Shown here is an 85-nucleotide RNA sequence from Rhizobacter sp. AJA081-3, a member of the family "c-di-GMP-I riboswitch aptamer". Taxonomically the source falls in Rhizobacter (Bacteria, Pseudomonadati, Pseudomonadota, Sphaerotilaceae).
RNA sequence: CGUCGUUUGUCGCAAACCUCGUGAAAGCGAGGGACGCAAAGCCUCCGGCCUACAGCAGCAAUGCCAGGGUAGCGGGGCUGCCGGA
Dot-bracket structure: ...........((...((((((....))))))...))..((((.((((((....(((....)))...)))..)))))))......
It scores 71 bits against the family's covariance model.